[Rfam]
Nucleotides: 107
Base pairs, nucleotide, nucleotide: 002102005099006098007097008096009095016033017032018031019030035088036087037086038084039083042082044080048075049074
Number, partner (000 for none) and nucleotide at each position: 001000c002102c003000g004000a005099c006098u007097c008096u009095g010000a011000a012000a013000a014000g015000u016033g017032a018031c019030c020000c021000c022000g023000c024000a025000u026000a027000c028000g029000g030019g031018g032017u033016c034000c035088g036087c037086c038084g039083a040000c041000g042082g043000u044080g045000a046000a047000a048075g049074c050000a051000c052000g053000g054000u055000c056000c057000c058000g059000c060000c061000u062000c063000u064000c065000g066000c067000g068000g069000g070000u071000c072000g073000c074049g075048c076000g077000a078000a079000a080044c081000u082042c083039u084038c085000a086037g087036g088035u089000u090000c091000a092000u093000g094000a095009c096008a097007g098006a099005g100000g101000g102002g103000g104000a105000g106000u107000u
Glycine riboswitch aptamer: a 107-nucleotide sequence from Microbacterium aurantiacum. The organism belongs to Microbacterium, within Bacteria. Gene Ontology term of the family: glycine biosynthetic process.